[Rfam]
RNA sequence: UCAGCCAGCUACAACCAAGCCAAACCAAUCCAACCAGCCCACCAGCCAAAACUCAACUUCAAAAUGUCUCCCUGCAACUGCAACUGCUGCUCCGGCGACUGCAACUCCUGCUCUUGCAGCUCCUGCACCGUAAGUGUCC
Numbered sequence: 001u002c003a004g005c006c007a008g009c010u011a012c013a014a015c016c017a018a019g020c021c022a023a024a025c026c027a028a029u030c031c032a033a034c035c036a037g038c039c040c041a042c043c044a045g046c047c048a049a050a051a052c053u054c055a056a057c058u059u060c061a062a063a064a065u066g067u068c069u070c071c072c073u074g075c076a077a078c079u080g081c082a083a084c085u086g087c088u089g090c091u092c093c094g095g096c097g098a099c100u101g102c103a104a105c106u107c108c109u110g111c112u113c114u115u116g117c118a119g120c121u122c123c124u125g126c127a128c129c130g131u132a133a134g135u136g137u138c139c
Base pairs, nucleotide, nucleotide: 073097074096075095080090081089082088101126102125103124110117111116
This 139-nucleotide sequence from Aspergillus nidulans belongs to the Rfam family "A. fumigatus sRNA Afu_254". The base pairs follow the family's consensus structure, which was predicted with WAR.